[Rfam]
RNA sequence: CAGAAGCAGUGGGGGUCUGAUCCCGCGCCGUGCUUGCACGGGCGCGGUGAGAAGACUUUGUGACACGCCCCCUUCAUGAGCAUGAAGCGGACGAUAGGGCGCGGGAAUGCGAAUGAAGGGAAGCAUGGCGGGAGCCGGUGAACGGCGGAGCCAUGCGGAGUCAUG
Dot-bracket structure: (....(.....(((((((..(.((((((((((....))))).)))))..)..)))))))....).....((((((((..((((...(((..(....)..)))....))))..))))))))..(((((((....((((.....))))...)))))))...).....

Source information:
This 165-nucleotide RNA sequence from Oribacterium sp. oral taxon 078 belongs to the Rfam family "Clostridiales-1 RNA". A search with the family's covariance model found it, with a score of 86 bits. It is annotated as a small RNA. The base pairs follow the family's consensus structure, which is taken from published work.